[Rfam]
RNA sequence: GUACUUACCUGGACGGGGUCAACUCGUGAUCAAGAAGACGAGUGGCCUAGGCUAGUGACCUCCAUUGCACUGUACGGAGGGGUGCUUAGCUUAAGGUCUUUCCAUGAGAAAGAGCCUACGUCAUUAUUUGUGGCAGAGGGGGCCUGCGUUCGCGCGGUCCCUAC
Number, nucleotide and partner (000 for none) at each position: 001g000002u000003a000004c000005u000006u000007a000008c000009c000010u000011g000012g122013a121014c120015g119016g048017g047018g046019u045020c044021a043022a000023c042024u041025c040026g039027u038028g000029a000030u000031c000032a000033a000034g000035a000036a000037g000038a027039c026040g025041a024042g023043u021044g020045g019046c018047c017048u016049a092050g091051g090052c089053u088054a000055g085056u084057g083058a000059c081060c080061u079062c077063c076064a000065u000066u000067g000068c000069a000070c000071u000072g000073u000074a000075c000076g063077g062078a000079g061080g060081g059082g000083u057084g056085c055086u000087u000088a053089g052090c051091u050092u049093a000094a117095g116096g115097u113098c112099u111100u000101u109102c108103c000104a000105u000106g000107a000108g102109a101110a000111a099112g098113a097114g000115c096116c095117u094118a000119c015120g014121u013122c012123a000124u000125u000126a000127u000128u000129u000130g000131u000132g000133g000134c000135a000136g000137a000138g162139g161140g160141g159142g000143c000144c000145u156146g155147c154148g153149u000150u000151c000152g000153c148154g147155c146156g145157g000158u000159c141160c140161c139162u138163a000164c000

A member of the RNA family "U1 spliceosomal RNA" from Brassica napus, 164 nucleotides long. The family's RNA type in Rfam is spliceosomal small nuclear RNA.